[Rfam]
Nucleotides: 045
Stems, first nucleotide, its partner, number of pairs: 001019008032044005
Number, partner (000 for none) and nucleotide at each position: 001019c002018c003017c004016a005015g006014g007013g008012c009000u010000g011000c012008g013007c014006c015005c016004u017003g018002g019001g020000c021000u022000g023000u024000g025000a026000u027000a028000g029000c030000g031000c032044g033043g034042c035041c036040c037000g038000u039000u040036g041035g042034g043033c044032c045000u

The family of this 45-nucleotide RNA from Posidoniimonas polymericola is "Acido-Lenti-1 RNA".
The family has 87 seed sequences and 2,607 matches in Rfam 15.1.
Rfam classes the family as a small RNA.
A search with the family's covariance model found it, with a score of 40 bits.